Shown here is a 116-nucleotide RNA sequence from Hymenochirus boettgeri, a member of the family "Small nucleolar RNA SNORD89". Taxonomically the source falls in Hymenochirus (Eukaryota, Amphibia, Batrachia, Pipinae). It is annotated as a C/D-box small nucleolar RNA. Rfam's curators write: snoRNA HBII-289 belongs to the family of C/D snoRNAs. It is the human orthologue of the mouse MBII-289 and has no identified RNA target. The literature on the family includes a 2001 paper in EMBO J by Huttenhofer et al., "RNomics: an experimental approach that identifies 201 candidates for novel, small, non-messenger RNAs in mouse".
[Rfam]
RNA sequence: GCCGGAGGAAUGAUGACAUAAAAGCCGAAUUACAGCGCCUCUCCUGGCAGGUUUCUCCUCUCGGUGGAGGCGUGAUGACAAAACCUCCUUGAGCGAACUAAACCACUGACCUCGGC
Numbered sequence: 001g002c003c004g005g006a007g008g009a010a011u012g013a014u015g016a017c018a019u020a021a022a023a024g025c026c027g028a029a030u031u032a033c034a035g036c037g038c039c040u041c042u043c044c045u046g047g048c049a050g051g052u053u054u055c056u057c058c059u060c061u062c063g064g065u066g067g068a069g070g071c072g073u074g075a076u077g078a079c080a081a082a083a084c085c086u087c088c089u090u091g092a093g094c095g096a097a098c099u100a101a102a103c104c105a106c107u108g109a110c111c112u113c114g115g116c
Stems, first nucleotide, its partner, number of pairs: 001116004006112003015106001024033001037099001040096002042093001044091001046089002051073002054070005074087002077084001